[Rfam]
RNA sequence: UGUUGGCCGACGCGCGCAUUUGUGCGUGCAUGUGGUUGAUGUUCUUGGUGGGCCAAGCGGAGGCCGCGCUGG
Numbered sequence: 001u002g003u004u005g006g007c008c009g010a011c012g013c014g015c016g017c018a019u020u021u022g023u024g025c026g027u028g029c030a031u032g033u034g035g036u037u038g039a040u041g042u043u044c045u046u047g048g049u050g051g052g053c054c055a056a057g058c059g060g061a062g063g064c065c066g067c068g069c070u071g072g
Base pairs, nucleotide, nucleotide: 006023007022009020010019012017024067025066028064029063031061034058037055038054

Shown here is a 72-nucleotide RNA from Orthohepacivirus hominis, a member of the family "Hepatitis C virus stem-loop SL2531 and SL2549AU".
Rfam's curators put it in the seed alignment.
The organism belongs to Hepatitis C virus genotype 6, within Viruses.
By type it is a cis-regulatory element.